[Rfam]
Record summary:
Shown here is a 217-nucleotide sequence, a member of the family "Bacillus sRNA ncr1575". Pairs were carried over by alignment from the consensus structure, which is taken from published work. For this family Rfam cites "Identification of regulatory RNAs in Bacillus subtilis" (Irnov et al., Nucleic Acids Res, 2010).
RNA sequence: AAAUAGAAUUAUGAGAGGACUGAUGGAUGAAUAAUGAUUAACUAAUCUAUAUUUUAAUUUGAAAUUAAUAACUUCAAACUACAAAAUAUAGGGUUAGUCUAUCCAUUUUUAUUAAUCAGUUUAUACUUUAUUUGUCAUGAUUCCAAUGAUUAAUAAGAACUUAUUAAGUAUAAGUGAAAUACUAAUCCUUCCGAUUACAAAUUGGGAGGAUUUUUUU
Number, nucleotide and partner (000 for none) at each position: 001a000002a000003a000004u000005a000006g000007a000008a000009u000010u000011a000012u000013g000014a000015g000016a110017g109018g108019a000020c000021u000022g000023a000024u105025g104026g103027a102028u000029g000030a000031a098032u097033a000034a000035u000036g000037a000038u000039u000040a000041a000042c000043u096044a095045a094046u093047c092048u091049a089050u088051a087052u086053u085054u084055u000056a000057a000058u078059u077060u076061g075062a074063a073064a000065u071066u000067a000068a000069u000070a000071a065072c000073u063074u062075c061076a060077a059078a058079c000080u000081a000082c000083a000084a054085a053086a052087u051088a050089u049090a000091g048092g047093g046094u045095u044096a043097g032098u031099c000100u000101a000102u027103c026104c025105a024106u000107u000108u018109u017110u016111a000112u000113u000114a000115a000116u000117c000118a165119g164120u163121u000122u000123a000124u000125a000126c157127u156128u155129u000130a000131u152132u000133u000134g000135u000136c000137a000138u000139g000140a000141u000142u000143c000144c000145a000146a000147u000148g000149a000150u000151u000152a131153a000154u000155a128156a127157g126158a000159a000160c000161u000162u000163a120164u119165u118166a000167a000168g000169u000170a000171u000172a000173a000174g000175u000176g000177a000178a000179a000180u000181a000182c000183u000184a212185a211186u210187c209188c208189u207190u206191c205192c204193g203194a202195u000196u000197a000198c000199a000200a000201a000202u194203u193204g192205g191206g190207a189208g188209g187210a186211u185212u184213u000214u000215u000216u000217u000